Description
rpsB sRNA: a 102-nucleotide sequence from Govanella unica. The literature on the family includes a 2009 paper in BMC Genomics by Meyer et al., "Identification of candidate structured RNAs in the marine organism 'Candidatus Pelagibacter ubique'". It scores 42 bits against the family's covariance model.

RNA sequence: CACACGCGGGUCUGAGGCGGAAUGGUUUCGUCUCUUCCGGUGCCUUGGGCCAGAUGCCCAAAGUCACUUGCCCGCGGCGGAUUAACCGGAUUAAGGAGACCA
Number, nucleotide and partner (000 for none) at each position: 001c079002a000003c077004a000005c076006g075007c074008g073009g072010g071011u000012c070013u000014g000015a000016g032017g031018c030019g029020g000021a028022a000023u000024g000025g000026u000027u000028u021029c019030g018031u017032c016033u000034c000035u000036u000037c000038c000039g000040g000041u000042g065043c000044c063045u062046u061047g000048g000049g000050c000051c000052a000053g000054a000055u000056g000057c000058c000059c000060a000061a046062a045063g044064u000065c042066a000067c000068u000069u000070g012071c010072c009073c008074g007075c006076g005077g003078c000079g001080g000081a000082u000083u000084a000085a000086c000087c000088g000089g000090a000091u000092u000093a000094a000095g000096g000097a000098g000099a000100c000101c000102a000